[Rfam]
Nucleotides: 074
Base pairs, nucleotide, nucleotide: 001065002064003063004062
Number, partner (000 for none) and nucleotide at each position: 001065g002064a003063a004062a005000a006000a007000u008000g009000a010000u011000g012000a013000u014000a015000u016000u017000u018000u019000c020000u021000g022000u023000g024000u025000c026000c027000u028000g029000u030000a031000g032000u033000u034000a035000c036000a037000g038000u039000g040000a041000a042000g043000a044000c045000c046000u047000c048000a049000g050000a051000u052000c053000c054000a055000a056000c057000u058000c059000u060000g061000a062004u063003u064002u065001c066000a067000c068000u069000c070000u071000a072000g073000u074000u
Record summary: Shown here is a 74-nucleotide sequence from Vireo altiloquus, a member of the family "Small nucleolar RNA SNORD19". Rfam 15.1 lists 1,431 matches to the family in 609 species. A reference for the family is Huttenhofer et al. (2001), "RNomics: an experimental approach that identifies 201 candidates for novel, small, non-messenger RNAs in mouse", EMBO J. The family is grouped with related families in Rfam's "SNORD19 clan". A search with the family's covariance model found it, with a score of 36 bits.